[Rfam]
RNA: c-di-AMP riboswitch aptamer (ydaO/yuaA leader)
Organism: Sulfoacidibacillus thermotolerans
RNA sequence: UACUAGAUUGCGCUCAAUUCCGAUCUUCGGAAGCGGGGGACCCAAGUUUUUAGGGGUGAAUCGAAUCUUUAGAUUCGUAGGGCAGCUCUCAGCCCGAAUCCGACAGCUAACCUCGUAAGCGGAAAGAGGGGUGGA
Numbered sequence: 001u002a003c004u005a006g007a008u009u010g011c012g013c014u015c016a017a018u019u020c021c022g023a024u025c026u027u028c029g030g031a032a033g034c035g036g037g038g039g040a041c042c043c044a045a046g047u048u049u050u051u052a053g054g055g056g057u058g059a060a061u062c063g064a065a066u067c068u069u070u071a072g073a074u075u076c077g078u079a080g081g082g083c084a085g086c087u088c089u090c091a092g093c094c095c096g097a098a099u100c101c102g103a104c105a106g107c108u109a110a111c112c113u114c115g116u117a118a119g120c121g122g123a124a125a126g127a128g129g130g131g132u133g134g135a
Base pairs, nucleotide, nucleotide: 011121012120013119014118018032019031020030033116034115035114036113037112038111043053054101055100056099062077063076064075065074080095081094082093083092